[Rfam]
RNA sequence: UCGUAUUACAUGUUUUGUGCGUGACUCUAAUUUAACAGGCUUAUGUUUGAGAUUUUUUUGACAAAUCCGGAUUUUGCUGUUGGAUUAGAUUCACGCACAAACUCGUAAUCUGUCU
Numbered sequence: 001u002c003g004u005a006u007u008a009c010a011u012g013u014u015u016u017g018u019g020c021g022u023g024a025c026u027c028u029a030a031u032u033u034a035a036c037a038g039g040c041u042u043a044u045g046u047u048u049g050a051g052a053u054u055u056u057u058u059u060g061a062c063a064a065a066u067c068c069g070g071a072u073u074u075u076g077c078u079g080u081u082g083g084a085u086u087a088g089a090u091u092c093a094c095g096c097a098c099a100a101a102c103u104c105g106u107a108a109u110c111u112g113u114c115u
Stems, first nucleotide, its partner, number of pairs: 002112002005109003012102002015100010026089002029086003033082002046071001

A member of the RNA family "MIR403 microRNA precursor family" from Arabidopsis lyrata, 115 nucleotides long. It scores 73 bits against the family's covariance model. Gene Ontology terms of the family: RISC complex and miRNA-mediated post-transcriptional gene silencing. The family's consensus secondary structure was predicted with WAR. A reference for the family is Mica et al. (2009), "High throughput approaches reveal splicing of primary microRNA transcripts and tissue specific expression of mature microRNAs in Vitis vinifera", BMC Genomics.